[Rfam]
RNA sequence: AGAUGUCUGAGGUGUUCGUUGUAAGUGCAAUGUGUGGACCGAACGCUUUAUGAAUAUAUCGGGAUUCUAUAUCGGUAAUUGGAUGACAGGCCUUUUCAUUUGGAAGUCAGAAAAUGCCGUGGGAAGCCCACCUGUAAUUACUUACAGGUCAAUACUCGUACUUACAUAAACGGCACCAUCGGAUAUUUU
Numbered sequence: 001a002g003a004u005g006u007c008u009g010a011g012g013u014g015u016u017c018g019u020u021g022u023a024a025g026u027g028c029a030a031u032g033u034g035u036g037g038a039c040c041g042a043a044c045g046c047u048u049u050a051u052g053a054a055u056a057u058a059u060c061g062g063g064a065u066u067c068u069a070u071a072u073c074g075g076u077a078a079u080u081g082g083a084u085g086a087c088a089g090g091c092c093u094u095u096u097c098a099u100u101u102g103g104a105a106g107u108c109a110g111a112a113a114a115u116g117c118c119g120u121g122g123g124a125a126g127c128c129c130a131c132c133u134g135u136a137a138u139u140a141c142u143u144a145c146a147g148g149u150c151a152a153u154a155c156u157c158g159u160a161c162u163u164a165c166a167u168a169a170a171c172g173g174c175a176c177c178a179u180c181g182g183a184u185a186u187u188u189u
Stems, first nucleotide, its partner, number of pairs: 002187009012176004017172003032155003035151003039148002061129003065125004072119001074118003078115003086107002091103002
Dot-bracket structure: .(((((((((.((((.(((............((((((.((....................(((.((((...(.(((.(((.....((...((.........))..)).....)))))))..)))).))).................))))).)))..............)))))))..)))))))))..
Background:
The record is a 189-nucleotide sequence from Falseniella ignava, which matches "6S / SsrS RNA" in Rfam. It scores 71 bits against the family's covariance model. On this family, see Chen et al., Molecular Cell 2017: "6S RNA Mimics B-Form DNA to Regulate Escherichia coli RNA Polymerase". About the family: E. coli 6S RNA was the first non coding RNA to be sequenced, but its function was unknown until recently. It consists of 184 nucleotides that fold into an extended hairpin structure with a large single-stranded internal bulge. The 6S RNA specifically associates with RNA polymerase holoenzyme containing the sigma70 specificity factor. This interaction represses expression from a sigma70-dependent promoter during stationary phase. 6S RNA homologs have recently been identified in most bacterial genomes. NCBI's taxonomy places the organism under Bacteria, Bacillati, Aerococcaceae, Falseniella, Falseniella ignava. It is annotated as a non-coding RNA gene.